[Rfam]
RNA sequence: AUACUUACUUGGUGUCGAGGUCAACCGUGAUCACCGAGGCGGUUCCUCCAGGACGAGACCGUCCCAUUGCACACCGGGACGGUUGACCCCUGCGAGUAUUCCAAAUAGGAAUAUCUCGGACACGUAAUUUUUGGUAGCGGGACUGCGUUCGCGCCGUCCCUG
Numbered sequence: 001a002u003a004c005u006u007a008c009u010u011g012g013u014g015u016c017g018a019g020g021u022c023a024a025c026c027g028u029g030a031u032c033a034c035c036g037a038g039g040c041g042g043u044u045c046c047u048c049c050a051g052g053a054c055g056a057g058a059c060c061g062u063c064c065c066a067u068u069g070c071a072c073a074c075c076g077g078g079a080c081g082g083u084u085g086a087c088c089c090c091u092g093c094g095a096g097u098a099u100u101c102c103a104a105a106u107a108g109g110a111a112u113a114u115c116u117c118g119g120a121c122a123c124g125u126a127a128u129u130u131u132u133g134g135u136a137g138c139g140g141g142a143c144u145g146c147g148u149u150c151g152c153g154c155c156g157u158c159c160c161u162g
Base pairs, nucleotide, nucleotide: 012123013122014121015120017048018047019046020045024043025042026041027040028039050091051090052089055087057084058083059082061080062079063078064077065076093118094117095116096114097113098112100110101109139160140159141158142157145154146153147152
Dot-bracket structure: ...........((((.((((...(((((..........))))).)))).(((..(.(((.(((((..........))))).)))..).))).((((((.((.......)).))).))).))))...............((((..(((....)))..))))..

Notes:
The record is a 162-nucleotide RNA sequence from Sipha flava, which matches "U1 spliceosomal RNA" in Rfam. Pairs were carried over by alignment from the consensus structure, which is taken from published work. The family has 100 seed sequences and 40,184 matches in Rfam 15.1. Lineage of the source: Eukaryota > Ecdysozoa > Arthropoda > Allotriocarida > Sipha.